[Rfam]
RNA sequence: CCGGCCUGGUUCGCCAGGCGCGAGUGCACACCCCGGUACCUGACACGGCCGGGGUUC
Numbered sequence: 001c002c003g004g005c006c007u008g009g010u011u012c013g014c015c016a017g018g019c020g021c022g023a024g025u026g027c028a029c030a031c032c033c034c035g036g037u038a039c040c041u042g043a044c045a046c047g048g049c050c051g052g053g054g055u056u057c
Base pairs, nucleotide, nucleotide: 001022004019005018006017007016008015009014028056031054032053033052034051035050036049037048
Rfam assigns this 57-nucleotide RNA sequence from Pseudaquabacterium pictum to the family "L17-Actino-Proteobacteria ribosomal protein leader".
A search with the family's covariance model found it, with a score of 40 bits.
On this family, see Eckert and Weinberg, BMC Microbiol 2020: "Discovery of 20 novel ribosomal leader candidates in bacteria and archaea".